[Rfam]
RNA sequence: UGAGAAGGCAUCCAAAGGGAUCGCAUUGAUCCUUUAUUUUUUUUCAACCCUUCAUUUUUUUUUUCUUUUCAAUUCUCCCCCUCCCCCAAAACAAAUUCACAAUUUUGGAUCAUGCUAUCCCUUUGGAUUCCUCCUU
Numbered sequence: 001u002g003a004g005a006a007g008g009c010a011u012c013c014a015a016a017g018g019g020a021u022c023g024c025a026u027u028g029a030u031c032c033u034u035u036a037u038u039u040u041u042u043u044u045c046a047a048c049c050c051u052u053c054a055u056u057u058u059u060u061u062u063u064u065c066u067u068u069u070c071a072a073u074u075c076u077c078c079c080c081c082u083c084c085c086c087c088a089a090a091a092c093a094a095a096u097u098c099a100c101a102a103u104u105u106u107g108g109a110u111c112a113u114g115c116u117a118u119c120c121c122u123u124u125g126g127a128u129u130c131c132u133c134c135u136u
Stems, first nucleotide, its partner, number of pairs: 002136003006132001008130001010128012023115004028111005036104001